[Rfam]
RNA sequence: GGUCGGGUAGCGCGUAGCCAUACAAGACCUUCGGGAAAAGCGCGUGGCCGUCUGAUAGCGGUGUUUAACUGCCCGACCGCCCUAAU
Numbered sequence: 001g002g003u004c005g006g007g008u009a010g011c012g013c014g015u016a017g018c019c020a021u022a023c024a025a026g027a028c029c030u031u032c033g034g035g036a037a038a039a040g041c042g043c044g045u046g047g048c049c050g051u052c053u054g055a056u057a058g059c060g061g062u063g064u065u066u067a068a069c070u071g072c073c074c075g076a077c078c079g080c081c082c083u084a085a086u
Stems, first nucleotide, its partner, number of pairs: 001078009013044003018040001028035002047062005

Background
The family of this 86-nucleotide RNA sequence is "sRNA-Xcc1". By type it is a small RNA.